The record is a 78-nucleotide sequence from Schistosoma japonicum, which matches "mir-3492 microRNA precursor family" in Rfam. Gene Ontology terms of the family: RISC complex and miRNA-mediated post-transcriptional gene silencing. Rfam 15.1 lists 21,496 matches to the family in 13 species. Lineage of the source: Eukaryota > Protostomia > Digenea > Schistosomatoidea > Schistosoma. The base pairs follow the family's consensus structure, which was predicted with RNAalifold. A search with the family's covariance model found it, with a score of 54 bits.

RNA sequence: AGCCUUCUGCAUACGGGCCAAGAUUUCAUCAGACACUAGACCAUGAGGAUUGACGAGACUUCCGAGAUAAGUGAAACG
Numbered sequence: 001a002g003c004c005u006u007c008u009g010c011a012u013a014c015g016g017g018c019c020a021a022g023a024u025u026u027c028a029u030c031a032g033a034c035a036c037u038a039g040a041c042c043a044u045g046a047g048g049a050u051u052g053a054c055g056a057g058a059c060u061u062c063c064g065a066g067a068u069a070a071g072u073g074a075a076a077c078g
Stems, first nucleotide, its partner, number of pairs: 002077001005074002008071001011068002016063002020061003024058004029053002